This 70-nucleotide RNA sequence from Digitaria exilis belongs to the Rfam family "Small nucleolar RNA Z105". The match comes from Rfam's covariance-model search (59 bits). The family has 11 seed sequences and 621 matches in Rfam 15.1. The literature on the family includes a 2003 paper in Nucleic Acids Res by Chen et al., "The high diversity of snoRNAs in plants: identification and comparative study of 120 snoRNA genes from Oryza sativa".
[Rfam]
RNA sequence: UUGGCAUGGUGAGGAAAGAAAUAGAUUACAUCUGAUCUACUAGAUGAGAAAUUCCUCCUACUCAUUCUGA
Numbered sequence: 001u002u003g004g005c006a007u008g009g010u011g012a013g014g015a016a017a018g019a020a021a022u023a024g025a026u027u028a029c030a031u032c033u034g035a036u037c038u039a040c041u042a043g044a045u046g047a048g049a050a051a052u053u054c055c056u057c058c059u060a061c062u063c064a065u066u067c068u069g070a
Stems, first nucleotide, its partner, number of pairs: 006065004029048001032043001